[Rfam]
RNA sequence: CCACGGGUCCGGGCCCCUCUGGCAGUCGAGGCGUCGGCUGCGAUGUCGGAUCCCCGUA
Numbered sequence: 001c002c003a004c005g006g007g008u009c010c011g012g013g014c015c016c017c018u019c020u021g022g023c024a025g026u027c028g029a030g031g032c033g034u035c036g037g038c039u040g041c042g043a044u045g046u047c048g049g050a051u052c053c054c055c056g057u058a
Stems, first nucleotide, its partner, number of pairs: 006052007022041008

A member of the RNA family "terC RNA" from Brevundimonas variabilis, 58 nucleotides long. Lineage of the source: Bacteria > Pseudomonadota > Alphaproteobacteria > Caulobacterales > Brevundimonas.